The family of this 107-nucleotide RNA from Geomesophilobacter sediminis is "SAM riboswitch aptamer (S box leader)".
From the family's description: The SAM riboswitch is found upstream of a number of genes which code for proteins involved in methionine or cysteine biosynthesis in Gram-positive bacteria.
The match comes from Rfam's covariance-model search (94 bits).
Gene Ontology term of the family: regulation of gene expression.
The organism belongs to Geomesophilobacter, within Bacteria.
The family's consensus secondary structure is taken from published work.
RNA sequence: AACUUAUCGAGAGCGACUGAGGGACUGGCCCUAUGACGUCGCGGCAACCUCCCCCCAUGGGGAAGGUGCCAAAUCCUGCGGAGCGGAGACGUUCCGGAAGAUAAGGA
Numbered sequence: 001a002a003c004u005u006a007u008c009g010a011g012a013g014c015g016a017c018u019g020a021g022g023g024a025c026u027g028g029c030c031c032u033a034u035g036a037c038g039u040c041g042c043g044g045c046a047a048c049c050u051c052c053c054c055c056c057a058u059g060g061g062g063a064a065g066g067u068g069c070c071a072a073a074u075c076c077u078g079c080g081g082a083g084c085g086g087a088g089a090c091g092u093u094c095c096g097g098a099a100g101a102u103a104a105g106g107a
Base pairs, nucleotide, nucleotide: 003105004104005103006102007101008100013042014041015040016039017038021031022030023029025078027076028075043070044069045068046067048066049065050062051061052060053059074099079096080095081094082093083092084091